Shown here is a 250-nucleotide part of an RNA from Halarchaeum acidiphilum, a member of the family "Archaeal large subunit ribosomal RNA". The organism belongs to Halarchaeum acidiphilum, within Archaea. A search with the family's covariance model found it, with a score of 2828 bits.

RNA sequence: UGGUGCUUGACGAGAACGUUCGUAUAGUACGAGAGGAACUACGAACGGUCACCACUGGUGUACCGGUCGUUCGAGAGAGCGCGUGCCGGGCAGCUACGUGACACGGGGUAAGAGCUGAACGCAUCUAAGCUCGAAACCCACUUGGAAAAGAAGCACCGGUGAGAUCACUCGUAGAAGACGAGGUGGAUAGACUCGGGAUGUACGCGCCGAGGCAACGAGGCGUUGAGUCCGCGAGCACUAACGAUCGAAG
Dot-bracket structure: ((((((((..((((..((((((((...............))))))))(((((...(((....((((((((((....)))))...)))))....))).)))))..(((....(((((...........)))))....))).))))......))))))))....((((.((((.......)))).....(((.(((((((.....(((((..(....)..)))))....))).))))..)))..))))....